[Rfam]
RNA sequence: AAGUGGGGACGACCCCACCGCUCCAGCUCUUUGCGGGGACGGCCUCG
Numbered sequence: 001a002a003g004u005g006g007g008g009a010c011g012a013c014c015c016c017a018c019c020g021c022u023c024c025a026g027c028u029c030u031u032u033g034c035g036g037g038g039a040c041g042g043c044c045u046c047g
Stems, first nucleotide, its partner, number of pairs: 003018006034047005
Guanidine-II riboswitch aptamer (mini-ykkC): a 47-nucleotide RNA from Lampropedia hyalina.
NCBI's taxonomy places the organism under Bacteria, Pseudomonadota, Betaproteobacteria, Burkholderiales, Lampropedia hyalina.
It scores 45 bits against the family's covariance model.
Rfam's curators write: Simpler in structure and has fewer highly conserved nucleotide positions than the ykkC-yxkD leader. Despite this each of its two stem-loop structures directly bind free guanidine.